The family of this 57-nucleotide RNA from Drosophyllum lusitanicum is "Plastid-rps18 3UTR RNA". It is annotated as a cis-regulatory element. It is one of the family's seed sequences. About the family: Plastid rps18 is a non-coding RNA (ncRNA) present in plastids. It was identified as a short stem-loop motif in the 3 prime untranslate region (3UTR) of rps18 gene. The family's consensus secondary structure was predicted with LocARNA. The source organism's lineage runs through Eukaryota, Tracheophyta, eudicotyledons, Pentapetalae and Drosophyllum. A reference for the family is Richter et al. (2023), "Retrograde signaling in plants: A critical review focusing on the GUN pathway and beyond", Plant Commun.
[Rfam]
RNA sequence: UGCAAGUAUUUUACGAUUAAGAAUCAACUGGUUCUUGUACAGAUGAUAUAUGAAUUG
Numbered sequence: 001u002g003c004a005a006g007u008a009u010u011u012u013a014c015g016a017u018u019a020a021g022a023a024u025c026a027a028c029u030g031g032u033u034c035u036u037g038u039a040c041a042g043a044u045g046a047u048a049u050a051u052g053a054a055u056u057g
Base pairs, nucleotide, nucleotide: 018037019036020035021034022033023032024031025030